[Rfam]
RNA sequence: GGUUGCAAGUUUGAGACCACAGCGGAAGUGCUCAUGGUGCAGCCCUGUCAGAUUUCAGUGAUCUGCAAAUUCUGCU
Numbered sequence: 001g002g003u004u005g006c007a008a009g010u011u012u013g014a015g016a017c018c019a020c021a022g023c024g025g026a027a028g029u030g031c032u033c034a035u036g037g038u039g040c041a042g043c044c045c046u047g048u049c050a051g052a053u054u055u056c057a058g059u060g061a062u063c064u065g066c067a068a069a070u071u072c073u074g075c076u
Stems, first nucleotide, its partner, number of pairs: 013045001015044001017042001021076007028040003049065006
The record is a 76-nucleotide RNA from Alligator mississippiensis, which matches "Mammalian CPEB3 ribozyme" in Rfam. The base pairs follow the family's consensus structure, which is taken from published work. Lineage of the source: Eukaryota > Metazoa > Sarcopterygii > Crocodylia > Alligator. Rfam's curators write: The mammalian CPEB3 ribozyme is a self cleaving RNA located in the second intron of the CPEB3 gene which belongs to a family of genes regulating messenger RNA polyadenylation.